[Rfam]
RNA sequence: UUGGCUCAACCCGUAGAUCCGAACUUGUGUUGAGAUUUGAACAACGCAAGCUCGAGUCUGGGGUAGAGCCCGC
Numbered sequence: 001u002u003g004g005c006u007c008a009a010c011c012c013g014u015a016g017a018u019c020c021g022a023a024c025u026u027g028u029g030u031u032g033a034g035a036u037u038u039g040a041a042c043a044a045c046g047c048a049a050g051c052u053c054g055a056g057u058c059u060g061g062g063g064u065a066g067a068g069c070c071c072g073c
Stems, first nucleotide, its partner, number of pairs: 003070005010063003015059004020054003024050006